[Rfam]
RNA: mir-9223 microRNA precursor family
Organism: Myotis lucifugus
RNA sequence: GGCAGUUCUUGGAUGAUGCACCCUGGAGUCAGGCUCCCUCCUCUCUGGAUCCAGGUGUAUCACCCGAGAACUGUA
Numbered sequence: 001g002g003c004a005g006u007u008c009u010u011g012g013a014u015g016a017u018g019c020a021c022c023c024u025g026g027a028g029u030c031a032g033g034c035u036c037c038c039u040c041c042u043c044u045c046u047g048g049a050u051c052c053a054g055g056u057g058u059a060u061c062a063c064c065c066g067a068g069a070a071c072u073g074u075a
Stems, first nucleotide, its partner, number of pairs: 002074002005071008014062004019057004025052003029048005